[Rfam]
RNA sequence: ACGCGGGAAGGAGGUGAUCGGGUACAUGAGUGAAACCCGGACACGCGAGGUGGCUGCGGGCUAGCGGCCCGUCACCACACUCCAGUGCAGUGCCGGGCCGGCACGUGAGAGACGCGUGCAGCCGGCCCAAUCCACACAGUCACCCGACCCGCGGGCUCGCCGGUAGGUCCGGCCGGCUCCUCCGCCGCCAGGCGGGGGAUCCGAGCCCGCGGGUUGUCCGUG
Numbered sequence: 001a002c003g004c005g006g007g008a009a010g011g012a013g014g015u016g017a018u019c020g021g022g023u024a025c026a027u028g029a030g031u032g033a034a035a036c037c038c039g040g041a042c043a044c045g046c047g048a049g050g051u052g053g054c055u056g057c058g059g060g061c062u063a064g065c066g067g068c069c070c071g072u073c074a075c076c077a078c079a080c081u082c083c084a085g086u087g088c089a090g091u092g093c094c095g096g097g098c099c100g101g102c103a104c105g106u107g108a109g110a111g112a113c114g115c116g117u118g119c120a121g122c123c124g125g126c127c128c129a130a131u132c133c134a135c136a137c138a139g140u141c142a143c144c145c146g147a148c149c150c151g152c153g154g155g156c157u158c159g160c161c162g163g164u165a166g167g168u169c170c171g172g173c174c175g176g177c178u179c180c181u182c183c184g185c186c187g188c189c190a191g192g193c194g195g196g197g198g199a200u201c202c203g204a205g206c207c208c209g210c211g212g213g214u215u216g217u218c219c220g221u222g
Base pairs, nucleotide, nucleotide: 014057015056016055018053059127060126061125062124064122065121067119068118070116071113072112145216146215147214148213149212150211151210152209153208154207155206156205157204159177160176161175162174163173164172
RNA: Actinobacteria sRNA Ms_IGR-5
Organism: Streptomyces sp. F-3